[Rfam]
RNA sequence: GACACAUAUUCGCUCCGAGCCGUCUCGCCUAAAGCGCGCCUUUCCCCCAAGCGCCAUGGCGGUCCGGCCGAAGGGUGACAGGGGAAACCCUGUCGCCUCCCGUGCUUGGAAAGGAGCCAUGCGAUGACUAAU
Numbered sequence: 001g002a003c004a005c006a007u008a009u010u011c012g013c014u015c016c017g018a019g020c021c022g023u024c025u026c027g028c029c030u031a032a033a034g035c036g037c038g039c040c041u042u043u044c045c046c047c048c049a050a051g052c053g054c055c056a057u058g059g060c061g062g063u064c065c066g067g068c069c070g071a072a073g074g075g076u077g078a079c080a081g082g083g084g085a086a087a088c089c090c091u092g093u094c095g096c097c098u099c100c101c102g103u104g105c106u107u108g109g110a111a112a113g114g115a116g117c118c119a120u121g122c123g124a125u126g127a128c129u130a131a132u
Stems, first nucleotide, its partner, number of pairs: 003126002012117005019068004025062005034054003073098011099109002
RNA: Molybdenum/Tungsten riboswitch aptamer (Moco RNA motif)
Organism: Hyphomonas sp. CY54-11-8